Rfam assigns this 80-nucleotide RNA sequence from Alligator mississippiensis to the family "Mammalian CPEB3 ribozyme".
The mammalian CPEB3 ribozyme is a self cleaving RNA located in the second intron of the CPEB3 gene which belongs to a family of genes regulating messenger RNA polyadenylation. This ribozyme is highly conserved and found only in mammals.
The match comes from Rfam's covariance-model search (47 bits).
RNA sequence: AGAGGUCACAAGUUUGAGGCCACAGCAGAAGUGCUCAUGACACAGCCUGUCAGAUUCCAACAAAAUUUGCAAAUUCUGCU
Numbered sequence: 001a002g003a004g005g006u007c008a009c010a011a012g013u014u015u016g017a018g019g020c021c022a023c024a025g026c027a028g029a030a031g032u033g034c035u036c037a038u039g040a041c042a043c044a045g046c047c048u049g050u051c052a053g054a055u056u057c058c059a060a061c062a063a064a065a066u067u068u069g070c071a072a073a074u075u076c077u078g079c080u
Stems, first nucleotide, its partner, number of pairs: 018047003024080007031043003051069006